[Rfam]
RNA sequence: CCGGUUGCCUGAAGGGACCGGCCGAACGCCGAAGGAGUUCGGCUCCAGGCGUCUCUCGUAUCCAUGUUGCUCGAAUGGAGGAUGUGGCUAUGAGAA
Numbered sequence: 001c002c003g004g005u006u007g008c009c010u011g012a013a014g015g016g017a018c019c020g021g022c023c024g025a026a027c028g029c030c031g032a033a034g035g036a037g038u039u040c041g042g043c044u045c046c047a048g049g050c051g052u053c054u055c056u057c058g059u060a061u062c063c064a065u066g067u068u069g070c071u072c073g074a075a076u077g078g079a080g081g082a083u084g085u086g087g088c089u090a091u092g093a094g095a096a
Stems, first nucleotide, its partner, number of pairs: 001021006008015002027051003055094006062087007070080003
The family of this 96-nucleotide sequence from Chelativorans petroleitrophicus is "Repression of heat shock gene expression (ROSE) element".
Rfam classes the family as an RNA thermoregulator.
This family represents a 5' UTR cis-regulatory element found in heat shock mRNAs and is known as the ROSE (repression of heat shock gene expression) element.
A search with the family's covariance model found it, with a score of 62 bits.
NCBI's taxonomy places the organism under Bacteria, Pseudomonadati, Alphaproteobacteria, Hyphomicrobiales, Chelativorans.
For this family Rfam cites "A mRNA-based thermosensor controls expression of rhizobial heat shock genes" (Nocker et al., Nucleic Acids Res, 2001).
The family has 13 seed sequences and 381 matches in Rfam 15.1.